[Rfam]
RNA sequence: CACUUUCCUCAUGGCAUGUAUCGUACUUGCUACUUGACUUUAGGGGAAAUCGAGCAGCGAGAGACAUGAAUGCAGAGCUGCCAACAGAAAAGAA
Numbered sequence: 001c002a003c004u005u006u007c008c009u010c011a012u013g014g015c016a017u018g019u020a021u022c023g024u025a026c027u028u029g030c031u032a033c034u035u036g037a038c039u040u041u042a043g044g045g046g047a048a049a050u051c052g053a054g055c056a057g058c059g060a061g062a063g064a065c066a067u068g069a070a071u072g073c074a075g076a077g078c079u080g081c082c083a084a085c086a087g088a089a090a091a092g093a094a
Base pairs, nucleotide, nucleotide: 003092004091005090006089008087014073015072016071017070024063026061027057028056029055030054031053034049035048038045039044
MIR2086 microRNA precursor family: a 94-nucleotide sequence from Cicer arietinum. It scores 51 bits against the family's covariance model.